[Rfam]
The record is an 87-nucleotide sequence from Gossypium harknessii, which matches "MIR7486 microRNA precursor family" in Rfam. A search with the family's covariance model found it, with a score of 74 bits. Its family is annotated with miRNA-mediated post-transcriptional gene silencing and RISC complex in the Gene Ontology. Pairs were carried over by alignment from the consensus structure, which was predicted with RNAalifold. Lineage of the source: Eukaryota > Tracheophyta > Euphyllophyta > Malvales > Gossypium.

RNA sequence: CACGUCAGCACGAGUUGCUGACGUGGCAGCAAAUGGCGUCCUUGAGGGCGCGAUUUGUUACCAGGUCAGCAACUCGCGUUGACGUAG
Dot-bracket structure: .((((((((.(((((((((((..(((.(((((((.(((.((....)).))).))))))).)))..))))))))))).))))))))..